A member of the RNA family "Small nucleolar RNA SNORD18" from Strongylocentrotus purpuratus, 70 nucleotides long. A reference for the family is Prislei et al. (1993), "Two different snoRNAs are encoded in introns of amphibian and human L1 ribosomal protein genes", Nucleic Acids Res. The family has 16 seed sequences and 2,622 matches in Rfam 15.1. It scores 52 bits against the family's covariance model.
[Rfam]
RNA sequence: GAGAAAUGAUGAUACUCCAACUUCGGUCCGUGUUUCUGAUCAACCCUGAUAAGAAUGAAGUUCUGAUCUU
Number, nucleotide and partner (000 for none) at each position: 001g070002a069003g068004a067005a000006a000007u000008g000009a000010u000011g000012a000013u000014a000015c000016u000017c000018c000019a000020a000021c000022u000023u000024c000025g000026g000027u000028c000029c000030g000031u000032g000033u000034u000035u000036c000037u000038g000039a000040u000041c000042a000043a000044c000045c000046c000047u000048g000049a000050u000051a000052a000053g000054a000055a000056u000057g000058a000059a000060g000061u000062u000063c000064u000065g000066a000067u004068c003069u002070u001